[Rfam]
RNA sequence: UGGGAGGUGAUGAUUAUUUCCCCAAAUGAUCGAAGCUGAAUACACCGAGCGAUUUUUCUCUCAAUAUAUUUUGGGAGUCCAAGCCAGAUUUUUGAUCUAU
Numbered sequence: 001u002g003g004g005a006g007g008u009g010a011u012g013a014u015u016a017u018u019u020c021c022c023c024a025a026a027u028g029a030u031c032g033a034a035g036c037u038g039a040a041u042a043c044a045c046c047g048a049g050c051g052a053u054u055u056u057u058c059u060c061u062c063a064a065u066a067u068a069u070u071u072u073g074g075g076a077g078u079c080c081a082a083g084c085c086a087g088a089u090u091u092u093u094g095a096u097c098u099a100u
Stems, first nucleotide, its partner, number of pairs: 001099003005096001
Small nucleolar RNA Z103: a 100-nucleotide RNA sequence from Ricinus communis. The organism belongs to Ricinus, within Eukaryota. Rfam 15.1 lists 2,844 matches to the family in 233 species. Its family is annotated with nucleolus and RNA processing in the Gene Ontology. On this family, see Chen et al., Nucleic Acids Res 2003: "The high diversity of snoRNAs in plants: identification and comparative study of 120 snoRNA genes from Oryza sativa".